Shown here is a 269-nucleotide RNA from Aplosporella prunicola, a member of the family "Fungal signal recognition particle RNA". The match comes from Rfam's covariance-model search (141 bits). Its Rfam clan is "SRP clan". The base pairs follow the family's consensus structure, which is taken from published work. The family's RNA type in Rfam is non-coding RNA gene.
[Rfam]
RNA sequence: CGGCUGUAAUGGUCAUAAUUCUGAGAGGUGCAUUGAAACCACGACCUCUUUCCCUUCACAUCGCCUAAGCGAGGGUCCAGUUCGAAUCCGAUGGUGUCCGACCAACUCGUGUGGGUAACCCACGAUGAAGGCGGACCUAAGCAAUGAAGUCUACUGUCGAGGGAAGCAAUUCUGCAGACGCGGCUUCACCACCGGAUGGCGGUGCUGGGUAGCCCUUGCUCUGGUAUGGGAUAGGCGUUGUGGACUGAUGAAUCAACCAGGUAUAUCUU
Numbered sequence: 001c002g003g004c005u006g007u008a009a010u011g012g013u014c015a016u017a018a019u020u021c022u023g024a025g026a027g028g029u030g031c032a033u034u035g036a037a038a039c040c041a042c043g044a045c046c047u048c049u050u051u052c053c054c055u056u057c058a059c060a061u062c063g064c065c066u067a068a069g070c071g072a073g074g075g076u077c078c079a080g081u082u083c084g085a086a087u088c089c090g091a092u093g094g095u096g097u098c099c100g101a102c103c104a105a106c107u108c109g110u111g112u113g114g115g116u117a118a119c120c121c122a123c124g125a126u127g128a129a130g131g132c133g134g135a136c137c138u139a140a141g142c143a144a145u146g147a148a149g150u151c152u153a154c155u156g157u158c159g160a161g162g163g164a165a166g167c168a169a170u171u172c173u174g175c176a177g178a179c180g181c182g183g184c185u186u187c188a189c190c191a192c193c194g195g196a197u198g199g200c201g202g203u204g205c206u207g208g209g210u211a212g213c214c215c216u217u218g219c220u221c222u223g224g225u226a227u228g229g230g231a232u233a234g235g236c237g238u239u240g241u242g243g244a245c246u247g248a249u250g251a252a253u254c255a256a257c258c259a260g261g262u263a264u265a266u267c268u269u
Base pairs, nucleotide, nucleotide: 002014003013004012020261021260022259023258027254028253029252031250032249033248036246039243040242041241042240043239044238045237047235048234049233051231052230053229054228064224065223068220069219070218071217072216073215074214075213076212077208078207079206080205081204082202083201084200086197087196088195089194090193092191093190094189096136097135098134099133100132102130105126107125108124109123110122111121113120114119137141145188146187147186148185149184150183151182155180156179157178158177163172164171165170